[Rfam]
RNA: Purine riboswitch aptamer
Organism: Planococcus halotolerans
RNA sequence: CAUUCUAAAAGAAUAUUCACUCAUAUAAUAGCGGGGAUAUGGCCUGCGAGUUUCUACCGGUUUACCGUAAAUAAACCGACUAUGAGAAGCAACGAAACGAUG
Numbered sequence: 001c002a003u004u005c006u007a008a009a010a011g012a013a014u015a016u017u018c019a020c021u022c023a024u025a026u027a028a029u030a031g032c033g034g035g036g037a038u039a040u041g042g043c044c045u046g047c048g049a050g051u052u053u054c055u056a057c058c059g060g061u062u063u064a065c066c067g068u069a070a071a072u073a074a075a076c077c078g079a080c081u082a083u084g085a086g087a088a089g090c091a092a093c094g095a096a097a098c099g100a101u102g
Stems, first nucleotide, its partner, number of pairs: 020086006029049001031047005058078007